Manganese Mn2+ riboswitch aptamer (yybP-ykoY): a 181-nucleotide RNA from Rhizobacter sp. AJA081-3.
[Rfam]
RNA sequence: GCUCUCGUCAUUGGGGAGUAGCCGCCCCGCAGCCGCGCUGCGGGGGCUGCCGUCAACACACUUGGCCCGCAGGCCAUGGCGUCAGCAACCUCCGGUUUGGCAAGACCUUUGACCACACAGCUUCCGCCAGCGGCCGGGGAGGCCGUGCGGUCAUGUGGUUUGUCCUCCGGCCCGGAGCAUC
Numbered sequence: 001g002c003u004c005u006c007g008u009c010a011u012u013g014g015g016g017a018g019u020a021g022c023c024g025c026c027c028c029g030c031a032g033c034c035g036c037g038c039u040g041c042g043g044g045g046g047c048u049g050c051c052g053u054c055a056a057c058a059c060a061c062u063u064g065g066c067c068c069g070c071a072g073g074c075c076a077u078g079g080c081g082u083c084a085g086c087a088a089c090c091u092c093c094g095g096u097u098u099g100g101c102a103a104g105a106c107c108u109u110u111g112a113c114c115a116c117a118c119a120g121c122u123u124c125c126g127c128c129a130g131c132g133g134c135c136g137g138g139g140a141g142g143c144c145g146u147g148c149g150g151u152c153a154u155g156u157g158g159u160u161u162g163u164c165c166u167c168c169g170g171c172c173c174g175g176a177g178c179a180u181c
Stems, first nucleotide, its partner, number of pairs: 026044003046086004051081005063076005087180001090177006
Dot-bracket structure: .........................(((.............))).((((.(((((.......(((((....)))))))))).))))(..((((((............................................................................))))))..).
Annotation: Rfam describes the family as follows. This RNA was originally discovered in E. coli during a large scale screen and was named SraF. The family was later found to exist upstream of related families of protein genes in many bacteria, including the the yybP and ykoK genes in B. subtilis.